[Rfam]
This 50-nucleotide RNA sequence from Falsigemmobacter intermedius belongs to the Rfam family "SAM/SAH riboswitch aptamer".
The base pairs follow the family's consensus structure, which is taken from published work.
Gene Ontology terms of the family: S-adenosylmethionine metabolic process and regulation of gene expression.

RNA sequence: UUACCGUCACAACGGCUUCCUGGCGUGACGGCCUUGUUUUCAAUGGAGCA
Numbered sequence: 001u002u003a004c005c006g007u008c009a010c011a012a013c014g015g016c017u018u019c020c021u022g023g024c025g026u027g028a029c030g031g032c033c034u035u036g037u038u039u040u041c042a043a044u045g046g047a048g049c050a
Base pairs, nucleotide, nucleotide: 004031005030006029007028008027009026010025013022014021015049016048017047019046020045
Overview
The organism belongs to Falsigemmobacter, within Bacteria. A search with the family's covariance model found it, with a score of 60 bits.